RNA: TPP riboswitch aptamer (THI element)
RNA sequence: UGUUAUUCACAGGGGCGCCCUAUGGCUGAGAUGCACCCUUUGAACCUGAUCCAGAUUAUACUGGCGUAGGGAGUGUAUAGCAGUUGCAG
Number, nucleotide and partner (000 for none) at each position: 001u000002g000003u000004u000005a000006u077007u000008c075009a074010c073011a039012g038013g037014g036015g000016c033017g026018c025019c024020c000021u000022a000023u000024g019025g018026c017027u000028g000029a000030g000031a000032u000033g016034c000035a000036c014037c013038c012039u011040u000041u000042g000043a000044a000045c070046c069047u068048g067049a000050u000051c064052c063053a062054g061055a000056u000057u000058a000059u000060a000061c054062u053063g052064g051065c000066g000067u048068a047069g046070g045071g000072a000073g010074u009075g008076u000077a006078u000079a000080g000081c000082a000083g000084u000085u000086g000087c000088a000089g000